[Rfam]
RNA sequence: UAUUGUGGUGGUUUCUGUAUUUGGCAGAUCUGUAACUGUAUCAGAGCGGCCUUGAACUACCACGGAGAUCAGAAAGGAGAAAGCUGUGCUGAGAACUUUUUAAAGCUUUUAGUUUUCAGCUUGUUGUUCAGCUCCCACAGAA
Numbered sequence: 001u002a003u004u005g006u007g008g009u010g011g012u013u014u015c016u017g018u019a020u021u022u023g024g025c026a027g028a029u030c031u032g033u034a035a036c037u038g039u040a041u042c043a044g045a046g047c048g049g050c051c052u053u054g055a056a057c058u059a060c061c062a063c064g065g066a067g068a069u070c071a072g073a074a075a076g077g078a079g080a081a082a083g084c085u086g087u088g089c090u091g092a093g094a095a096c097u098u099u100u101u102a103a104a105g106c107u108u109u110u111a112g113u114u115u116u117c118a119g120c121u122u123g124u125u126g127u128u129c130a131g132c133u134c135c136c137a138c139a140g141a142a
Base pairs, nucleotide, nucleotide: 005063006062007061008060009059010058011057023051024050025049027047029045030044031043032042076135077134078133079132102127104125105124106123

Shown here is a 142-nucleotide RNA from Podilymbus podiceps, a member of the family "Small nucleolar RNA SNORA12". From the family's description: U108 belongs to the H/ACA family of snoRNAs. The sequence is predicted to guide the pseudouridylation of the U372 residue in the 28S rRNA subunit. It scores 71 bits against the family's covariance model.